RNA sequence: GCUUUCAACAUCCCCGUUCGCCAAUUCGAGAGGAUUGGGCGGACUGAAGGC
Numbered sequence: 001g002c003u004u005u006c007a008a009c010a011u012c013c014c015c016g017u018u019c020g021c022c023a024a025u026u027c028g029a030g031a032g033g034a035u036u037g038g039g040c041g042g043a044c045u046g047a048a049g050g051c
Stems, first nucleotide, its partner, number of pairs: 001051007013037001016044007024036001026033002